RNA sequence: UGCUCGAAAGCCUAAACCCACACACGUAUCGACACGGUUUCCUGGGUGCCUUUCGACAAGUACGGAGGGUUGGAAAUUGGGAUGCGUGGAGGCCUAAC
Numbered sequence: 001u002g003c004u005c006g007a008a009a010g011c012c013u014a015a016a017c018c019c020a021c022a023c024a025c026g027u028a029u030c031g032a033c034a035c036g037g038u039u040u041c042c043u044g045g046g047u048g049c050c051u052u053u054c055g056a057c058a059a060g061u062a063c064g065g066a067g068g069g070u071u072g073g074a075a076a077u078u079g080g081g082a083u084g085c086g087u088g089g090a091g092g093c094c095u096a097a098c
Base pairs, nucleotide, nucleotide: 023088024087025086026085027084028083029082030081035079036078037077038076039075040074041073042072048070049069050068051067052066
RNA: t44 RNA